Annotation
The family of this 98-nucleotide sequence from Propionigenium maris is "Purine riboswitch aptamer". The family's consensus secondary structure is taken from published work. The match comes from Rfam's covariance-model search (57 bits).
[Rfam]
RNA sequence: AAUUUUGGAAGCGAUUUAUCUCAUAUAAGCUGCUAAUAGGGUGCAGUGUUUCUACGGUUGACCUCAAAUCAACCUCUAUGAGUGGAAGUUUUAAUAUA
Numbered sequence: 001a002a003u004u005u006u007g008g009a010a011g012c013g014a015u016u017u018a019u020c021u022c023a024u025a026u027a028a029g030c031u032g033c034u035a036a037u038a039g040g041g042u043g044c045a046g047u048g049u050u051u052c053u054a055c056g057g058u059u060g061a062c063c064u065c066a067a068a069u070c071a072a073c074c075u076c077u078a079u080g081a082g083u084g085g086a087a088g089u090u091u092u093a094a095u096a097u098a
Base pairs, nucleotide, nucleotide: 020082021081022080023079024078025077029047030046031045032044033043056074057073058072059071060070061069
Dot-bracket structure: ...................((((((...(((((.........)))))........((((((.......))))))..))))))................
Rfam's curators write: Riboswitches are metabolite binding domains within certain messenger RNAs that serve as precision sensors for their corresponding targets.